[Rfam]
RNA sequence: CAAGGAGAGUGACAACGAGAGAAAGCACGCCUGUAAACAGUCAUGUCAGUUCGCAUAAAUGCUGACAAACGUGCUCUCUCUCGUUGUCAUCCAGAU
Numbered sequence: 001c002a003a004g005g006a007g008a009g010u011g012a013c014a015a016c017g018a019g020a021g022a023a024a025g026c027a028c029g030c031c032u033g034u035a036a037a038c039a040g041u042c043a044u045g046u047c048a049g050u051u052c053g054c055a056u057a058a059a060u061g062c063u064g065a066c067a068a069a070c071g072u073g074c075u076c077u078c079u080c081u082c083g084u085u086g087u088c089a090u091c092c093a094g095a096u
Base pairs, nucleotide, nucleotide: 010089011088012087013086014085016083017082020079021078025074026073027072028071029070032067033066034065
The family of this 96-nucleotide sequence from Camphora micrantha is "MIR535 microRNA precursor family". Its family is annotated with miRNA-mediated post-transcriptional gene silencing and RISC complex in the Gene Ontology. The literature on the family includes a 2010 paper in Nucleic Acids Res by Zeng et al., "Conservation and divergence of microRNAs and their functions in Euphorbiaceous plants".